[Rfam]
Shown here is a 115-nucleotide RNA sequence from Medicago truncatula, a member of the family "MIR2593 microRNA precursor family".

RNA sequence: UUAUAAGCAAAAUUCCACUUUUUAGAUUCAUUCAAUAAAUGAUGUAUGUGGUCUAUUUAAUGGACCACAUACAUCAUUUAUUGAAUGAAUCUAAAAAAUAGAUUUUUGCUUAUAA
Dot-bracket structure: .((((((.((((..(.(.(((((((.((((((((((((((((((....((((...........))))....)))))))))))))))))).))))))).).)..)))).)))))).
The match comes from Rfam's covariance-model search (106 bits).